[Rfam]
Shown here is a 78-nucleotide RNA sequence, a member of the family "ABC transporter regulator".
RNA sequence: AUUACCCAUCGUGAUGUGGUUAUUGCAGUCGUAACUGUUUGAUUGCAUAGGGCAAUAUUUUAUUGCCCUUUUAUUUUG
Number, nucleotide and partner (000 for none) at each position: 001a000002u000003u000004a000005c000006c000007c000008a000009u000010c000011g000012u000013g000014a000015u000016g000017u000018g000019g000020u000021u000022a000023u000024u000025g046026c045027a044028g043029u042030c041031g040032u000033a000034a000035c000036u000037g000038u000039u000040u031041g030042a029043u028044u027045g026046c025047a000048u000049a069050g068051g067052g066053c065054a064055a063056u062057a061058u000059u000060u000061u057062a056063u055064u054065g053066c052067c051068c050069u049070u000071u000072u000073a000074u000075u000076u000077u000078g000

Pairs were carried over by alignment from the consensus structure, which is taken from published work.